[Rfam]
RNA: Small Cajal body specific RNA 16
RNA sequence: CAGGGCUGGGGAAGGGCUGCUGAGUGGUGGAGCCAGAGGCCCCAGCCUUGUACCAGCCAGCCUCCCCCGUGCCCGAGAUUAACCCCCCAGCAGAGGCCCUGCUGGGGUCUCUCCUGUGCAGUAACAGGUGUGAGCAUUCAUACAGCCUUCUGAUGGUCAUGUAUGAUACUGCAUACAACA
Numbered sequence: 001c002a003g004g005g006c007u008g009g010g011g012a013a014g015g016g017c018u019g020c021u022g023a024g025u026g027g028u029g030g031a032g033c034c035a036g037a038g039g040c041c042c043c044a045g046c047c048u049u050g051u052a053c054c055a056g057c058c059a060g061c062c063u064c065c066c067c068c069g070u071g072c073c074c075g076a077g078a079u080u081a082a083c084c085c086c087c088c089a090g091c092a093g094a095g096g097c098c099c100u101g102c103u104g105g106g107g108u109c110u111c112u113c114c115u116g117u118g119c120a121g122u123a124a125c126a127g128g129u130g131u132g133a134g135c136a137u138u139c140a141u142a143c144a145g146c147c148u149u150c151u152g153a154u155g156g157u158c159a160u161g162u163a164u165g166a167u168a169c170u171g172c173a174u175a176c177a178a179c180a
Stems, first nucleotide, its partner, number of pairs: 003074004008068003015062004019057004024053002026047003030043001032041001034039001086107003089103005115175009125165002131159003135155004142149001